[Rfam]
RNA sequence: CGCUUAUUUUGCCCAAGCGAAGCUCGACCGCCCAUUCAAACGAUGAUCGCGUUCAUCGACGAUCACCGCGAGGCGCACGGGGUCGAGUCGAUCUGCGGGUGCUGCCGAUCGCCCCG
Numbered sequence: 001c002g003c004u005u006a007u008u009u010u011g012c013c014c015a016a017g018c019g020a021a022g023c024u025c026g027a028c029c030g031c032c033c034a035u036u037c038a039a040a041c042g043a044u045g046a047u048c049g050c051g052u053u054c055a056u057c058g059a060c061g062a063u064c065a066c067c068g069c070g071a072g073g074c075g076c077a078c079g080g081g082g083u084c085g086a087g088u089c090g091a092u093c094u095g096c097g098g099g100u101g102c103u104g105c106c107g108a109u110c111g112c113c114c115c116g
Stems, first nucleotide, its partner, number of pairs: 017031003078116005089111002092108002095105004

A member of the RNA family "ALIL pseudoknot" from Limoniibacter endophyticus, 116 nucleotides long. It is annotated as a cis-regulatory element. Gene Ontology term of the family: positive regulation of translational frameshifting. Rfam 15.1 lists 2,146 matches to the family in 1,098 species.